[Rfam]
RNA sequence: AGCCUCAUUCUAGAUGAGAACGGGCACCCUUGCUCAUGGUGUCCAGAGUCGCUGAUGUGGCUACAUGGAGACCAGGUUAUGCUUCCACCACAGCAGCUGGUUGCGGUGGUGACAAUGAAACCUGUGACAGUC
Numbered sequence: 001a002g003c004c005u006c007a008u009u010c011u012a013g014a015u016g017a018g019a020a021c022g023g024g025c026a027c028c029c030u031u032g033c034u035c036a037u038g039g040u041g042u043c044c045a046g047a048g049u050c051g052c053u054g055a056u057g058u059g060g061c062u063a064c065a066u067g068g069a070g071a072c073c074a075g076g077u078u079a080u081g082c083u084u085c086c087a088c089c090a091c092a093g094c095a096g097c098u099g100g101u102u103g104c105g106g107u108g109g110u111g112a113c114a115a116u117g118a119a120a121c122c123u124g125u126g127a128c129a130g131u132c
Stems, first nucleotide, its partner, number of pairs: 002061003006057003022044006073124004086111006

Annotation: Rfam assigns this 132-nucleotide RNA sequence from Galemys pyrenaicus to the family "Small nucleolar RNA SNORA1". It scores 111 bits against the family's covariance model. The family's consensus secondary structure was predicted with PFOLD. About the family: ACA1 is a member of the H/ACA class of snoRNA that guide the sites of modification of uridines to pseudouridines. Gene Ontology terms of the family: nucleolus and RNA processing.